Bacterial large subunit ribosomal RNA: a 587-nucleotide part of an RNA from Desulfolithobacter dissulfuricans. Taxonomically the source falls in Desulfolithobacter (Bacteria, Thermodesulfobacteriota, Desulfobulbia, Desulfobulbales).

RNA sequence: CCCGCAACAAGACAGAAAGACCCCGUGAACCUUUACUACAGCUUGGCAUUGUGUUUAGGGGUAGCAUGUGUAGGAUAGGUGGGAGGCUUUGAAGCGGUGACGCCAGUCAUCGUGGAGCCGCCCUUGAAAUACCACCCUUGCUAUCUUUGAACUCUAACCGCGGCCCGUUAUCCGGGUCCGGGACAGUGUCUGGUGGGUAGUUUGACUGGGGCGGUCGCCUCCCAAAGAGUAACGGAGGCGCGCGAAGGUUCCCUCAGGCUGAUUGGAAACCAGCCGAAGAGUGUAAAGGCAUAAGGGAGCUUGACUGCGAGAGAGACAUCUCGAGCAGGUACGAAAGUAGGUCUUAGUGAUCCGGCGAUUCCGCAUGGAAGGGUCGUCGCUCAACGGAUAAAAGGUACUCCGGGGAUAACAGGCUUAUCUCCCCCAAGAGUCCACAUCGACGGGGAGGUUUGGCACCUCGAUGUCGGCUCAUCACAUCCUGGGGCUGGAGCAGGUCCCAAGGGUUCGGCUGUUCGCCGAUUAAAGUGGUACGUGAGCUGGGUUUAAAACGUCGUGAGACAGUUUGGUCCUUAUCUGUUGCGGGCGCA
Numbered sequence: 001c002c003c004g005c006a007a008c009a010a011g012a013c014a015g016a017a018a019g020a021c022c023c024c025g026u027g028a029a030c031c032u033u034u035a036c037u038a039c040a041g042c043u044u045g046g047c048a049u050u051g052u053g054u055u056u057a058g059g060g061g062u063a064g065c066a067u068g069u070g071u072a073g074g075a076u077a078g079g080u081g082g083g084a085g086g087c088u089u090u091g092a093a094g095c096g097g098u099g100a101c102g103c104c105a106g107u108c109a110u111c112g113u114g115g116a117g118c119c120g121c122c123c124u125u126g127a128a129a130u131a132c133c134a135c136c137c138u139u140g141c142u143a144u145c146u147u148u149g150a151a152c153u154c155u156a157a158c159c160g161c162g163g164c165c166c167g168u169u170a171u172c173c174g175g176g177u178c179c180g181g182g183a184c185a186g187u188g189u190c191u192g193g194u195g196g197g198u199a200g201u202u203u204g205a206c207u208g209g210g211g212c213g214g215u216c217g218c219c220u221c222c223c224a225a226a227g228a229g230u231a232a233c234g235g236a237g238g239c240g241c242g243c244g245a246a247g248g249u250u251c252c253c254u255c256a257g258g259c260u261g262a263u264u265g266g267a268a269a270c271c272a273g274c275c276g277a278a279g280a281g282u283g284u285a286a287a288g289g290c291a292u293a294a295g296g297g298a299g300c301u302u303g304a305c306u307g308c309g310a311g312a313g314a315g316a317c318a319u320c321u322c323g324a325g326c327a328g329g330u331a332c333g334a335a336a337g338u339a340g341g342u343c344u345u346a347g348u349g350a351u352c353c354g355g356c357g358a359u360u361c362c363g364c365a366u367g368g369a370a371g372g373g374u375c376g377u378c379g380c381u382c383a384a385c386g387g388a389u390a391a392a393a394g395g396u397a398c399u400c401c402g403g404g405g406a407u408a409a410c411a412g413g414c415u416u417a418u419c420u421c422c423c424c425c426a427a428g429a430g431u432c433c434a435c436a437u438c439g440a441c442g443g444g445g446a447g448g449u450u451u452g453g454c455a456c457c458u459c460g461a462u463g464u465c466g467g468c469u470c471a472u473c474a475c476a477u478c479c480u481g482g483g484g485c486u487g488g489a490g491c492a493g494g495u496c497c498c499a500a501g502g503g504u505u506c507g508g509c510u511g512u513u514c515g516c517c518g519a520u521u522a523a524a525g526u527g528g529u530a531c532g533u534g535a536g537c538u539g540g541g542u543u544u545a546a547a548a549c550g551u552c553g554u555g556a557g558a559c560a561g562u563u564u565g566g567u568c569c570u571u572a573u574c575u576g577u578u579g580c581g582g583g584c585g586c587a
Stems, first nucleotide, its partner, number of pairs: 001583008010575003014570002022404004027400002029396005035201004042193002045190004051154001053152014068137001078136005085119003094113008158181003162178006204216004217239006240385001242342002248300006254280002257275005281290002305328004311322003330339003353379007361372002413454003417451001418448007428438002465540001466538004470532001471529005478503002481498006505519005546564004550559003